This 76-nucleotide sequence from Chenopodium quinoa belongs to the Rfam family "Small nucleolar RNA Z159/U59". Gene Ontology terms of the family: nucleolus and RNA processing. Its Rfam clan is "SNORD59 clan". By type it is a C/D-box small nucleolar RNA.
[Rfam]
RNA sequence: GUCUCCAAUGAUGAUGAAAAGUUAAGUUCUGAUAUCUUCCCUGUGGAAAAAAAUUGGAGACCUGAACUGAGGAGAC
Numbered sequence: 001g002u003c004u005c006c007a008a009u010g011a012u013g014a015u016g017a018a019a020a021g022u023u024a025a026g027u028u029c030u031g032a033u034a035u036c037u038u039c040c041c042u043g044u045g046g047a048a049a050a051a052a053a054u055u056g057g058a059g060a061c062c063u064g065a066a067c068u069g070a071g072g073a074g075a076c
Stems, first nucleotide, its partner, number of pairs: 003074004